[Rfam]
RNA sequence: UAGAAUAAUGUAGGUAAGGGAAGUCGGCAAAUUGGAUCCGUAACUUCGGAAUAAGGAUUGGCUCUGAGGACCGGGGCGUGUCGGGUUUGGACGGGAAGCGGAUGCGGCCGGCGCCGGGCCUGGUCGAUGCCGUGCGCGUCCCUCGGGGCGAGCGCGGCGGAAGCACGCGCGACCCCCUCGUGCGCUCCGGCCUUCCGCCGCGUCUUCCUAGGUCCGUUGCCCCGGCCUCGUCGGUUCUUUCUCGUGCGCGAGGCGGCGGGGUGGUUCUGUACGACCGCCGUUCAACGGUCAGCUCAGAACUGGCACGGACAAGGGGAAUCCGACUGUCUAAUUAAAACAAAGCAUUGCGAUGGCCCUCGCGGGUGUUGACGCAAUGUGAUUUCUGCCCAGUGCUCUGAAUGUCAACGUGAAGAAAUUCAAGCAAGCGCGGGUAAACGGCGGGAGUAACUAUGACUCUCUUAAGGUAGCCAAAUGCCUCGUCAUCUAAUUAGUGACGCGCAUGAAUGGAUUAACGAGAUUCCCACUGUCCCUAUCUACUAUUAGCGAAACCACAGCCAAGGGAACGGGCUUGGGAGA
Numbered sequence: 001u002a003g004a005a006u007a008a009u010g011u012a013g014g015u016a017a018g019g020g021a022a023g024u025c026g027g028c029a030a031a032u033u034g035g036a037u038c039c040g041u042a043a044c045u046u047c048g049g050a051a052u053a054a055g056g057a058u059u060g061g062c063u064c065u066g067a068g069g070a071c072c073g074g075g076g077c078g079u080g081u082c083g084g085g086u087u088u089g090g091a092c093g094g095g096a097a098g099c100g101g102a103u104g105c106g107g108c109c110g111g112c113g114c115c116g117g118g119c120c121u122g123g124u125c126g127a128u129g130c131c132g133u134g135c136g137c138g139u140c141c142c143u144c145g146g147g148g149c150g151a152g153c154g155c156g157g158c159g160g161a162a163g164c165a166c167g168c169g170c171g172a173c174c175c176c177c178u179c180g181u182g183c184g185c186u187c188c189g190g191c192c193u194u195c196c197g198c199c200g201c202g203u204c205u206u207c208c209u210a211g212g213u214c215c216g217u218u219g220c221c222c223c224g225g226c227c228u229c230g231u232c233g234g235u236u237c238u239u240u241c242u243c244g245u246g247c248g249c250g251a252g253g254c255g256g257c258g259g260g261g262u263g264g265u266u267c268u269g270u271a272c273g274a275c276c277g278c279c280g281u282u283c284a285a286c287g288g289u290c291a292g293c294u295c296a297g298a299a300c301u302g303g304c305a306c307g308g309a310c311a312a313g314g315g316g317a318a319u320c321c322g323a324c325u326g327u328c329u330a331a332u333u334a335a336a337a338c339a340a341a342g343c344a345u346u347g348c349g350a351u352g353g354c355c356c357u358c359g360c361g362g363g364u365g366u367u368g369a370c371g372c373a374a375u376g377u378g379a380u381u382u383c384u385g386c387c388c389a390g391u392g393c394u395c396u397g398a399a400u401g402u403c404a405a406c407g408u409g410a411a412g413a414a415a416u417u418c419a420a421g422c423a424a425g426c427g428c429g430g431g432u433a434a435a436c437g438g439c440g441g442g443a444g445u446a447a448c449u450a451u452g453a454c455u456c457u458c459u460u461a462a463g464g465u466a467g468c469c470a471a472a473u474g475c476c477u478c479g480u481c482a483u484c485u486a487a488u489u490a491g492u493g494a495c496g497c498g499c500a501u502g503a504a505u506g507g508a509u510u511a512a513c514g515a516g517a518u519u520c521c522c523a524c525u526g527u528c529c530c531u532a533u534c535u536a537c538u539a540u541u542a543g544c545g546a547a548a549c550c551a552c553a554g555c556c557a558a559g560g561g562a563a564c565g566g567g568c569u570u571g572g573g574a575g576a
Stems, first nucleotide, its partner, number of pairs: 001542002004540001010537007018529003035059005044049001060301002063298006069290005075279004080275004302306001314522007321514002325339003342377008353364004381508003385439003390436002392432004397428001400427003408419004440458006459463001479495005555572005
This 576-nucleotide part of an RNA from Trichogramma brassicae belongs to the Rfam family "Eukaryotic large subunit ribosomal RNA". The base pairs follow the family's consensus structure, which is taken from published work.